Shown here is a 143-nucleotide RNA from Parahoeflea halophila, a member of the family "Alphaproteobacterial sRNA ar7". By type it is a small RNA. For this family Rfam cites "A survey of sRNA families in alpha-proteobacteria" (del Val et al., RNA Biol, 2012). A search with the family's covariance model found it, with a score of 90 bits. Pairs were carried over by alignment from the consensus structure.
RNA sequence: GAACGAAUAAGCCGAUGUCUGGAUCCCGGCUCGUCCCCCGCCGUUUCCAGACCAUGGACAAGGGCCGCCCCGCCCCCCUUUAGAGGCCCUUGUCCUGACAACACGCCGCCAUGGCCCUUCCCCUCCGGCCAUGGCGGCUUUUC
Numbered sequence: 001g002a003a004c005g006a007a008u009a010a011g012c013c014g015a016u017g018u019c020u021g022g023a024u025c026c027c028g029g030c031u032c033g034u035c036c037c038c039c040g041c042c043g044u045u046u047c048c049a050g051a052c053c054a055u056g057g058a059c060a061a062g063g064g065c066c067g068c069c070c071c072g073c074c075c076c077c078c079u080u081u082a083g084a085g086g087c088c089c090u091u092g093u094c095c096u097g098a099c100a101a102c103a104c105g106c107c108g109c110c111a112u113g114g115c116c117c118u119u120c121c122c123c124u125c126c127g128g129c130c131a132u133g134g135c136g137g138c139u140u141u142u143c
Stems, first nucleotide, its partner, number of pairs: 018051006028042003056095011103139001106137010117127001